[Rfam]
Rfam assigns this 65-nucleotide sequence from Neolamprologus brichardi to the family "Small nucleolar RNA SNORD98".
It scores 69 bits against the family's covariance model.
Rfam classes the family as a C/D-box small nucleolar RNA.
NCBI's taxonomy places the organism under Eukaryota, Teleostei, Neoteleostei, Cichliformes, Neolamprologus.
On this family, see Galardi et al., Mol Cell Biol 2002: "Purified box C/D snoRNPs are able to reproduce site-specific 2'-O-methylation of target RNA in vitro".
The family has 10 seed sequences and 571 matches in Rfam 15.1.
Pairs were carried over by alignment from the consensus structure.
RNA sequence: GACGAUGAUGUAGUAACCCUAUUCCAUUGCUGAAUACUCAGUGUGGAAAACUAUAAACUGAUGUC
Numbered sequence: 001g002a003c004g005a006u007g008a009u010g011u012a013g014u015a016a017c018c019c020u021a022u023u024c025c026a027u028u029g030c031u032g033a034a035u036a037c038u039c040a041g042u043g044u045g046g047a048a049a050a051c052u053a054u055a056a057a058c059u060g061a062u063g064u065c
Stems, first nucleotide, its partner, number of pairs: 001065004